Annotation: The record is a 92-nucleotide RNA from Vitis vinifera, which matches "small nucleolar RNA snoR114" in Rfam. The base pairs follow the family's consensus structure, which was predicted with RNAalifold. A reference for the family is Chen and Wu (2009), "Mining small RNA sequencing data: a new approach to identify small nucleolar RNAs in Arabidopsis", Nucleic Acids Res. Gene Ontology terms of the family: nucleolus and RNA processing. Rfam classes the family as a C/D-box small nucleolar RNA. The sequence is in the family's curated seed alignment.

[Rfam]
RNA sequence: GAGCAGUGAUGAGUAACAUGCGCUAAACUGUGAUGGCUGGGUCCCAUCACCAUCGUCAGAUCUUUCGGACGAGAACUUGCGCAUCUGAGCUC
Number, nucleotide and partner (000 for none) at each position: 001g092002a091003g090004c089005a000006g000007u000008g000009a000010u000011g000012a000013g000014u000015a000016a000017c000018a000019u000020g000021c000022g000023c000024u000025a000026a000027a000028c000029u000030g000031u000032g000033a000034u000035g000036g000037c000038u000039g000040g000041g000042u000043c000044c000045c000046a000047u000048c000049a000050c000051c000052a000053u000054c000055g000056u000057c000058a000059g000060a000061u000062c000063u000064u000065u000066c000067g000068g000069a000070c000071g000072a000073g000074a000075a000076c000077u000078u000079g000080c000081g000082c000083a000084u000085c000086u000087g000088a000089g004090c003091u002092c001